Notes: The record is a 75-nucleotide sequence from Alligator mississippiensis, which matches "Mammalian CPEB3 ribozyme" in Rfam.

RNA sequence: UCAAGAGUUCAAGACCAUGGCAAAAGCACUGGUAGUGCAGCCCUGUCAGAUGCCAAUGAAUCUGUGAAUUCUGCU
Dot-bracket structure: ............[.[...((((.(((((.......))).].]....(((((.(....).)))))....)).))))
Taxonomically the source falls in Alligator (Eukaryota, Deuterostomia, Dipnotetrapodomorpha, Sauria). Rfam describes the family as follows. The mammalian CPEB3 ribozyme is a self cleaving RNA located in the second intron of the CPEB3 gene which belongs to a family of genes regulating messenger RNA polyadenylation.